[Rfam]
RNA sequence: UCGGAGUGGGACAAGCUAGCUCAGAAUUCAUUUCUUGCCUUUUACCAGAGAUGACCGUGGCUCAUGCCCAUGAUACUCCAUUCUUCAAAUCUUUGUAACACACCUUCUGAUUAUUCAGAGA
Numbered sequence: 001u002c003g004g005a006g007u008g009g010g011a012c013a014a015g016c017u018a019g020c021u022c023a024g025a026a027u028u029c030a031u032u033u034c035u036u037g038c039c040u041u042u043u044a045c046c047a048g049a050g051a052u053g054a055c056c057g058u059g060g061c062u063c064a065u066g067c068c069c070a071u072g073a074u075a076c077u078c079c080a081u082u083c084u085u086c087a088a089a090u091c092u093u094u095g096u097a098a099c100a101c102a103c104c105u106u107c108u109g110a111u112u113a114u115u116c117a118g119a120g121a
Base pairs, nucleotide, nucleotide: 003079004078005077006076009069010068012066013065014062015061016060017059018058028054029053030052031051032050033049034048035047105120106119107118108117109116110115